[Rfam]
RNA sequence: AUGGGCUAGGAAAUGGUGGCUGUGUAGCUGGGCCUCUUGGGGUUCAGCCUUGUACCUGCUAGCCUGACCUUGCCCUAGAUUAAAUGAGAACUUGGGGUUUGCCCUCUGCAGUAACAGGUGUGAGCAUUCUACCAGUAGAUAGAUGGUCAUGUAUGAUACUGCAUACAGUU
Numbered sequence: 001a002u003g004g005g006c007u008a009g010g011a012a013a014u015g016g017u018g019g020c021u022g023u024g025u026a027g028c029u030g031g032g033c034c035u036c037u038u039g040g041g042g043u044u045c046a047g048c049c050u051u052g053u054a055c056c057u058g059c060u061a062g063c064c065u066g067a068c069c070u071u072g073c074c075c076u077a078g079a080u081u082a083a084a085u086g087a088g089a090a091c092u093u094g095g096g097g098u099u100u101g102c103c104c105u106c107u108g109c110a111g112u113a114a115c116a117g118g119u120g121u122g123a124g125c126a127u128u129c130u131a132c133c134a135g136u137a138g139a140u141a142g143a144u145g146g147u148c149a150u151g152u153a154u155g156a157u158a159c160u161g162c163a164u165a166c167a168g169u170u
Stems, first nucleotide, its partner, number of pairs: 003075004008070003015064003019059002022056001024055002027048004032043003105165001107163007115155002121149003125145004131140001133138001

Shown here is a 170-nucleotide RNA from Varanus komodoensis, a member of the family "Small Cajal body specific RNA 16".
For this family Rfam cites "Cajal body-specific small nuclear RNAs: a novel class of 2'-O-methylation and pseudouridylation guide RNAs" (Darzacq et al., EMBO J, 2002).
Its family is annotated with nucleolus and RNA processing in the Gene Ontology.
From the family's description: scaRNAs are a specific class of small nuclear RNAs which localise to the Cajal bodies and guide the modification of RNA polymerase II transcribed spliceosomal RNAs U1, U2, U4, U5 and U12. ACA47 belongs to the H/ACA box class of guide RNAs as it has the predicted hairpin-hinge-hairpin-tail structure, the conserved H/ACA-box motifs and is found associated with GAR1. ACA47 is predicted to guide the pseudouridylation of residue U5 of the U1 spliceosomal snRNA.
The family's RNA type in Rfam is small Cajal body RNA.
NCBI's taxonomy places the organism under Eukaryota, Euteleostomi, Amniota, Squamata, Varanus.